[Rfam]
RNA sequence: GGGAAGCAUCAAAGAGAUGAGAUGCUUCCCGAUACAAUCUUCCUACAGAAAAGCUCUGAUGUUUCCUUGCUUGUAGUAACUCGAGCAAGAUUCUGCAAGUCGGAAACCUCCAGAGACACGA
Numbered sequence: 001g002g003g004a005a006g007c008a009u010c011a012a013a014g015a016g017a018u019g020a021g022a023u024g025c026u027u028c029c030c031g032a033u034a035c036a037a038u039c040u041u042c043c044u045a046c047a048g049a050a051a052a053g054c055u056c057u058g059a060u061g062u063u064u065c066c067u068u069g070c071u072u073g074u075a076g077u078a079a080c081u082c083g084a085g086c087a088a089g090a091u092u093c094u095g096c097a098a099g100u101c102g103g104a105a106a107c108c109u110c111c112a113g114a115g116a117c118a119c120g121a
Stems, first nucleotide, its partner, number of pairs: 001030003005026006055114003069100008078091001080089001
A member of the RNA family "Small nucleolar RNA snoR104" from Hibiscus syriacus, 121 nucleotides long. A search with the family's covariance model found it, with a score of 94 bits. It is annotated as an H/ACA-box small nucleolar RNA.